[Rfam]
This 196-nucleotide RNA sequence from Bacillus sp. FJAT-27916 belongs to the Rfam family "6S / SsrS RNA". The family's RNA type in Rfam is non-coding RNA gene. E. coli 6S RNA was the first non coding RNA to be sequenced, but its function was unknown until recently. It consists of 184 nucleotides that fold into an extended hairpin structure with a large single-stranded internal bulge. The 6S RNA specifically associates with RNA polymerase holoenzyme containing the sigma70 specificity factor. This interaction represses expression from a sigma70-dependent promoter during stationary phase. 6S RNA homologs have recently been identified in most bacterial genomes. Many Gram-positive species have two copies of 6S RNA. In Bacillus subtilis, both copies appear to interact with RNA polymerase holoenzyme containing the housekeeping sigma factor and be expressed during different stages of growth. In many proteobacteria, 6S RNA may be processed from a transcript encoding homologs of the E. coli YgfA protein which is a putative 5-formyltetrahydrofolate cycloligase activity. The match comes from Rfam's covariance-model search (66 bits).
RNA sequence: UACAAGCUGCGUUGUACGUGAUGCAUAAUUAAGUUUUAACCUUUAAGCUGUAUUAGGGAGUUUUAAAAAUUUAUGGAAAUGACAAGCCUCUGUCUAGAUGACAUGGGGGACAUGCAGGAACAUAAUUGCGAACACCCACUUGUUGAAGUGGUGGUUUAAAACUUUCUUAUAAUGUAACGGCAAAGGCGGCUGUACA
Numbered sequence: 001u002a003c004a005a006g007c008u009g010c011g012u013u014g015u016a017c018g019u020g021a022u023g024c025a026u027a028a029u030u031a032a033g034u035u036u037u038a039a040c041c042u043u044u045a046a047g048c049u050g051u052a053u054u055a056g057g058g059a060g061u062u063u064u065a066a067a068a069a070u071u072u073a074u075g076g077a078a079a080u081g082a083c084a085a086g087c088c089u090c091u092g093u094c095u096a097g098a099u100g101a102c103a104u105g106g107g108g109g110a111c112a113u114g115c116a117g118g119a120a121c122a123u124a125a126u127u128g129c130g131a132a133c134a135c136c137c138a139c140u141u142g143u144u145g146a147a148g149u150g151g152u153g154g155u156u157u158a159a160a161a162c163u164u165u166c167u168u169a170u171a172a173u174g175u176a177a178c179g180g181c182a183a184a185g186g187c188g189g190c191u192g193u194a195c196a
Stems, first nucleotide, its partner, number of pairs: 005191006012183004017179003032163004037158003040154002056137003060133004067127001071125005081115001087109007